[Rfam]
RNA: Plastid-rpl20 3UTR RNA
Organism: Musa balbisiana
RNA sequence: ACAGAAUUCCCGGAGAAGGAACUCCGGGAAAAAUAGAUAAAAAUAAAUUAAUAUAGUAAUAGGAAUGCACGAAUAGUUUUAAU
Number, nucleotide and partner (000 for none) at each position: 001a000002c000003a000004g000005a000006a000007u030008u029009c028010c027011c026012g025013g024014a023015g022016a000017a000018g000019g000020a000021a000022c015023u014024c013025c012026g011027g010028g009029a008030a007031a000032a000033a000034u000035a000036g000037a000038u000039a000040a000041a000042a000043a000044u000045a000046a000047a000048u000049u000050a000051a000052u000053a000054u000055a000056g000057u000058a000059a000060u000061a000062g000063g000064a000065a000066u000067g079068c000069a077070c076071g000072a000073a000074u000075a000076g070077u069078u000079u067080u000081a000082a000083u000